This 121-nucleotide RNA from a Syntrophomonadaceae bacterium belongs to the Rfam family "Group II catalytic intron D1-D4-2". Group II introns are found in rRNA, tRNA and mRNA of organelles in fungi, plants and protists, and also in mRNA in bacteria. NCBI's taxonomy places the organism under Bacteria, Bacillati, Bacillota, Clostridia, Syntrophomonadaceae.

[Rfam]
RNA sequence: GGGGGUAGGCCCCCCGAAGCCGGCUUGCAGGAGCAGGCUUCAAACCACCUUAAGCUGACCUGGUAAAGAGCCUUGGUAGUGAGCGUUAAGGAAAAGGCAGGCAGGAUUAAACCUGUCAGGU
Numbered sequence: 001g002g003g004g005g006u007a008g009g010c011c012c013c014c015c016g017a018a019g020c021c022g023g024c025u026u027g028c029a030g031g032a033g034c035a036g037g038c039u040u041c042a043a044a045c046c047a048c049c050u051u052a053a054g055c056u057g058a059c060c061u062g063g064u065a066a067a068g069a070g071c072c073u074u075g076g077u078a079g080u081g082a083g084c085g086u087u088a089a090g091g092a093a094a095a096g097g098c099a100g101g102c103a104g105g106a107u108u109a110a111a112c113c114u115g116u117c118a119g120g121u
Stems, first nucleotide, its partner, number of pairs: 001015005016041006023034004046120001048091006054080002057077001059075001062072003096117006
Dot-bracket structure: (((((.....)))))((((((.((((....)))).))))))....(.((((((((.(.(..(((.....)))..).).)).....))))))....((((((..........))))))..).
Its family is annotated with Group II intron splicing in the Gene Ontology. For this family Rfam cites "The ins and outs of group II introns" (Bonen and Vogel, Trends Genet, 2001).